The family of this 151-nucleotide RNA from Olea europaea is "Small nucleolar RNA snoR2/U65". The family's consensus secondary structure was predicted with WAR. Its family is annotated with nucleolus and RNA processing in the Gene Ontology. The family has 11 seed sequences and 908 matches in Rfam 15.1. The literature on the family includes a 1998 paper in J Cell Sci by Shaw et al., "Localization and processing from a polycistronic precursor of novel snoRNAs in maize". The source organism's lineage runs through Eukaryota, Streptophyta, Lamiales, Oleaceae and Olea europaea.
[Rfam]
Nucleotides: 151
Stems, first nucleotide, its partner, number of pairs: 002059007009051001013047004018042001020040003024033003078143005091132002096128003100124003
Number, partner (000 for none) and nucleotide at each position: 001000g002059g003058u004057c005056u006055g007054a008053u009051g010000c011000c012000a013047c014046g015045u016044c017000a018042c019000c020040g021039g022038u023000a024033g025032c026031g027000a028000a029000a030000u031026c032025g033024c034000u035000g036000u037000g038022a039021c040020c041000g042018g043000c044016g045015a046014u047013g048000c049000u050000a051009u052000g053008a054007u055006u056005g057004g058003a059002c060000c061000a062000a063000a064000a065000u066000c067000g068000a069000u070000u071000u072000c073000a074000u075000a076000u077000u078143u079142c080141g081140c082139a083000u084000g085000u086000u087000g088000a089000u090000a091132g092131g093000a094000a095000u096128c097127c098126g099000u100124g101123g102122a103000c104000u105000g106000a107000a108000u109000u110000u111000u112000a113000u114000u115000c116000c117000a118000u119000u120000c121000a122102u123101c124100u125000a126098u127097g128096g129000a130000g131092c132091c133000g134000u135000u136000u137000u138000c139082u140081g141080c142079g143078a144000u145000u146000a147000c148000a149000u150000u151000u